A member of the RNA family "Bacillaceae-1 RNA" from Pullulanibacillus pueri, 68 nucleotides long. Taxonomically the source falls in Pullulanibacillus (Bacteria, Bacillati, Bacillota, Caryophanales).
RNA sequence: CAUAAAGGAACGCUGACGAAAAGCGUUCACGUCCUGUGACAAACGUAGAAGCCAGCACGUCCUGUGCA
Numbered sequence: 001c002a003u004a005a006a007g008g009a010a011c012g013c014u015g016a017c018g019a020a021a022a023g024c025g026u027u028c029a030c031g032u033c034c035u036g037u038g039a040c041a042a043a044c045g046u047a048g049a050a051g052c053c054a055g056c057a058c059g060u061c062c063u064g065u066g067c068a
Stems, first nucleotide, its partner, number of pairs: 011051001014048001016046002027039004055067004